[Rfam]
RNA sequence: AGCCCGUGAUGGUUUCAGAGUAGUGAACAGAAUUGAUUUCUGAAAACUGCACUCUGAGGCU
Numbered sequence: 001a002g003c004c005c006g007u008g009a010u011g012g013u014u015u016c017a018g019a020g021u022a023g024u025g026a027a028c029a030g031a032a033u034u035g036a037u038u039u040c041u042g043a044a045a046a047c048u049g050c051a052c053u054c055u056g057a058g059g060c061u
Stems, first nucleotide, its partner, number of pairs: 001061004
Description: Rfam assigns this 61-nucleotide RNA sequence from Centropus unirufus to the family "Small nucleolar RNA SNORD75". It scores 59 bits against the family's covariance model. Lineage of the source: Eukaryota > Dipnotetrapodomorpha > Archelosauria > Archosauria > Centropus. Its family is annotated with RNA processing and nucleolus in the Gene Ontology.